[Rfam]
RNA sequence: UAUAAUCUUCAGGGCGGGGUGAAAUUCCCCACCGGCGGUAUAGCCCGCGAGCUGCGUGUUCAGCAUGAUUCAGUGAAAUUCUGAAGCCGACAGUAAAGUCUGGAUGGGAGAAGAUAGAA
Numbered sequence: 001u002a003u004a005a006u007c008u009u010c011a012g013g014g015c016g017g018g019g020u021g022a023a024a025u026u027c028c029c030c031a032c033c034g035g036c037g038g039u040a041u042a043g044c045c046c047g048c049g050a051g052c053u054g055c056g057u058g059u060u061c062a063g064c065a066u067g068a069u070u071c072a073g074u075g076a077a078a079u080u081c082u083g084a085a086g087c088c089g090a091c092a093g094u095a096a097a098g099u100c101u102g103g104a105u106g107g108g109a110g111a112a113g114a115u116a117g118a119a
Base pairs, nucleotide, nucleotide: 003117005115006114007113008112009111010110017029018028019027031099032098033089034088035048036047037046038045043087044086069085070084071083072082073081091102092101093100
Rfam assigns this 119-nucleotide RNA from Clostridium kluyveri to the family "FMN riboswitch aptamer (RFN element)". Taxonomically the source falls in Clostridium kluyveri (Bacteria, Bacillati, Clostridia, Eubacteriales). Rfam's curators put it in the seed alignment. About the family: The RFN element is a highly conserved domain that is found frequently in the 5'-untranslated regions of prokaryotic mRNAs that encode for flavin mononucleotide (FMN) biosynthesis and transport proteins.